This 92-nucleotide RNA belongs to the Rfam family "Peptidase-S11 RNA". By type it is a cis-regulatory element.

[Rfam]
RNA sequence: CGUAUGAUGCUGCUGCCAGCCCGCGCGCCGACGUGACUGAGGCGGGCGGCCUGUGUCUCUCUGGCACAGGUACAUAACACCAACCGGGUUUU
Number, nucleotide and partner (000 for none) at each position: 001c000002g000003u000004a000005u000006g000007a000008u000009g000010c000011u000012g000013c000014u000015g050016c049017c048018a000019g047020c046021c045022c044023g043024c042025g000026c000027g000028c000029c000030g000031a000032c000033g000034u000035g000036a000037c000038u000039g000040a000041g000042g024043c023044g022045g021046g020047c019048g017049g016050c015051c069052u068053g067054u066055g065056u064057c000058u000059c000060u000061c000062u000063g000064g056065c055066a054067c053068a052069g051070g000071u000072a000073c000074a000075u000076a000077a000078c000079a000080c000081c000082a000083a000084c000085c000086g000087g000088g000089u000090u000091u000092u000